[Rfam]
RNA: Proteobacterial sRNA psRNA2
Organism: Burkholderia glumae
RNA sequence: AGGUUACUCCUUGGCGCUUGCGCGCUGUUUUGAUGAAGAUUCGCACCUCUAUCAAAACGGGUAACCCCGCCUCUUGGCAAGGCCUUACUGUCAGAUCAAGUCUGAACUUCUACACGUAAUGUCUGUAGCUAUUCAGGGGGGCAUUUCAGAAUGAAACACGACGAACAAUUGCACAAUUCAACGCCC
Numbered sequence: 001a002g003g004u005u006a007c008u009c010c011u012u013g014g015c016g017c018u019u020g021c022g023c024g025c026u027g028u029u030u031u032g033a034u035g036a037a038g039a040u041u042c043g044c045a046c047c048u049c050u051a052u053c054a055a056a057a058c059g060g061g062u063a064a065c066c067c068c069g070c071c072u073c074u075u076g077g078c079a080a081g082g083c084c085u086u087a088c089u090g091u092c093a094g095a096u097c098a099a100g101u102c103u104g105a106a107c108u109u110c111u112a113c114a115c116g117u118a119a120u121g122u123c124u125g126u127a128g129c130u131a132u133u134c135a136g137g138g139g140g141g142c143a144u145u146u147c148a149g150a151a152u153g154a155a156a157c158a159c160g161a162c163g164a165a166c167a168a169u170u171g172c173a174c175a176a177u178u179c180a181a182c183g184c185c186c
Stems, first nucleotide, its partner, number of pairs: 002066006009060002014025004027058009037048002075164001077162001081157001085154002090107002092104005109150003114146001
Dot-bracket structure: .((((((.((...((((....)))).(((((((((.((........)).)))))))))))))))))........(.(...(...((...(((((((...))))).)).(((..(...............................).)))..))..)....).)......................